[Rfam]
RNA sequence: CCUGUGAGUGUGCCAGCUUACAGAACAUGCCUUGAGUAAACGCCUAGAUGGUUUAGGCAAUUCCAGCUAGGGCUUGGCAACCCGACCUUAAAGAGAAUGAAAGCAAGUAAAGUUAACCGUGCAUGUAAGGUUGAUGUGAUUGUGAGUAGCGGUAGUUCAGUUGCCGAGCUGAUU
Numbered sequence: 001c002c003u004g005u006g007a008g009u010g011u012g013c014c015a016g017c018u019u020a021c022a023g024a025a026c027a028u029g030c031c032u033u034g035a036g037u038a039a040a041c042g043c044c045u046a047g048a049u050g051g052u053u054u055a056g057g058c059a060a061u062u063c064c065a066g067c068u069a070g071g072g073c074u075u076g077g078c079a080a081c082c083c084g085a086c087c088u089u090a091a092a093g094a095g096a097a098u099g100a101a102a103g104c105a106a107g108u109a110a111a112g113u114u115a116a117c118c119g120u121g122c123a124u125g126u127a128a129g130g131u132u133g134a135u136g137u138g139a140u141u142g143u144g145a146g147u148a149g150c151g152g153u154a155g156u157u158c159a160g161u162u163g164c165c166g167a168g169c170u171g172a173u174u
Stems, first nucleotide, its partner, number of pairs: 002023007012078004026125005065088002068085001070083003074079001098151002103143004108138001110137001112135007120127001155174001157172005